[Rfam]
RNA sequence: UCCUUAUCAAGAGCGGCGGAGGGAAUAGGCCCUGCGAUGCCCGGCAACCUAUGUGCUGAUAGGCACGGAAAGGUGCUACAUCCUACAGAUAUAUUCUGAAAGAUGAGGA
Dot-bracket structure: ((((((((....(.(((...(((..[[[[)))......))))((((.(((.((((........)))).)..))))))...(]]]]((((.....))))..)))))))))
Numbered sequence: 001u002c003c004u005u006a007u008c009a010a011g012a013g014c015g016g017c018g019g020a021g022g023g024a025a026u027a028g029g030c031c032c033u034g035c036g037a038u039g040c041c042c043g044g045c046a047a048c049c050u051a052u053g054u055g056c057u058g059a060u061a062g063g064c065a066c067g068g069a070a071a072g073g074u075g076c077u078a079c080a081u082c083c084u085a086c087a088g089a090u091a092u093a094u095u096c097u098g099a100a101a102g103a104u105g106a107g108g109a
Stems, first nucleotide, its partner, number of pairs: 001109008013042001015041003021032003026085004043077004048073002050069001052067004081101001086098004

Source information
This 109-nucleotide RNA from [Eubacterium] infirmum belongs to the Rfam family "SAM riboswitch aptamer (S box leader)". A search with the family's covariance model found it, with a score of 78 bits. About the family: The SAM riboswitch is found upstream of a number of genes which code for proteins involved in methionine or cysteine biosynthesis in Gram-positive bacteria. NCBI's taxonomy places the organism under Bacteria, Bacillati, Peptostreptococcales, Anaerovoracaceae, [Eubacterium] infirmum.